[Rfam]
RNA sequence: UGGACAUAUUAUUGUAUUCGACUGUAUUCAUGAUGUAAAAUAAGGGAUUACACUGUUUUUAAAACGGAAAGUGAAUCAAUUAACAUAAUAGACUCAU
Numbered sequence: 001u002g003g004a005c006a007u008a009u010u011a012u013u014g015u016a017u018u019c020g021a022c023u024g025u026a027u028u029c030a031u032g033a034u035g036u037a038a039a040a041u042a043a044g045g046g047a048u049u050a051c052a053c054u055g056u057u058u059u060u061a062a063a064a065c066g067g068a069a070a071g072u073g074a075a076u077c078a079a080u081u082a083a084c085a086u087a088a089u090a091g092a093c094u095c096a097u
Base pairs, nucleotide, nucleotide: 003095004094009091010090011089012088013087014086015085017083018082020081021080023078024077026076027075028074029073030072031071034066035065036064037059038058039057040056041055042054

MIR6152 microRNA precursor family: a 97-nucleotide RNA sequence from Nicotiana sylvestris. Taxonomically the source falls in Nicotiana (Eukaryota, Streptophyta, Embryophyta, Gunneridae). A search with the family's covariance model found it, with a score of 96 bits. The family's consensus secondary structure was predicted with RNAalifold. Gene Ontology terms of the family: RISC complex and miRNA-mediated post-transcriptional gene silencing. Rfam 15.1 lists 5,807 matches to the family in 3 species.